[Rfam]
Nucleotides: 090
Stems, first nucleotide, its partner, number of pairs: 002089008
Number, partner (000 for none) and nucleotide at each position: 001000c002089c003088g004087g005086g006085c007084a008083u009082g010000u011000g012000u013000g014000a015000u016000g017000a018000c019000a020000g021000a022000a023000c024000u025000u026000u027000u028000u029000u030000c031000c032000c033000c034000a035000u036000c037000a038000g039000a040000u041000c042000g043000a044000c045000c046000a047000u048000g049000u050000u051000g052000a053000u054000c055000u056000c057000a058000a059000c060000u061000c062000u063000u064000c065000u066000a067000a068000g069000c070000c071000a072000g073000u074000u075000u076000g077000u078000c079000u080000g081000a082009c083008a084007u085006g086005c087004c088003u089002g090000c